[Rfam]
This 37-nucleotide sequence from Legionella pneumophila belongs to the Rfam family "abiF RNA". It is one of the family's seed sequences. It is annotated as a small RNA. Rfam's curators write: Actinobacteria, Bacteroidetes, Clostridia, Proteobacteria, one Clostridia phage.
RNA sequence: CCCGUCACGCCUCUCAAUGAUGCGCACCACGACGGGU
Numbered sequence: 001c002c003c004g005u006c007a008c009g010c011c012u013c014u015c016a017a018u019g020a021u022g023c024g025c026a027c028c029a030c031g032a033c034g035g036g037u
Stems, first nucleotide, its partner, number of pairs: 001036006008024003